[Rfam]
RNA sequence: CUCGACUUUCAGCCUCUUUACGGUGCUGCCUUGUCUCUCAUCAUGUUCAAGCAGCAUUGUACAGGGCUAUGACAGCCGAG
Numbered sequence: 001c002u003c004g005a006c007u008u009u010c011a012g013c014c015u016c017u018u019u020a021c022g023g024u025g026c027u028g029c030c031u032u033g034u035c036u037c038u039c040a041u042c043a044u045g046u047u048c049a050a051g052c053a054g055c056a057u058u059g060u061a062c063a064g065g066g067c068u069a070u071g072a073c074a075g076c077c078g079a080g
Stems, first nucleotide, its partner, number of pairs: 014066004019061010030051004
Rfam assigns this 80-nucleotide sequence from Kryptolebias marmoratus to the family "mir-103/107 microRNA precursor family". Rfam links the family to the GO terms miRNA-mediated post-transcriptional gene silencing and RISC complex. This family consists of the mammalian microRNA (miRNA) precursors mir-103 and mir107. Animal miRNAs are transcribed as ~70nt precursors and subsequently processed by the Dicer enzyme to give a ~22nt product. In this case the mature sequence comes from the 3' arm of the precursor. The extents of the hairpin precursors are not generally known and are estimated based on hairpin prediction. The products are thought to have regulatory roles through complementarity to mRNA. The involvement of Dicer in miRNA processing suggests a relationship with the phenomenon of RNA interference. miRNAs are numbered based on the sequence of the mature RNA. The literature on the family includes a 2002 paper in Genes Dev by Mourelatos et al., "miRNPs: a novel class of ribonucleoproteins containing numerous microRNAs". The organism belongs to Kryptolebias, within Eukaryota.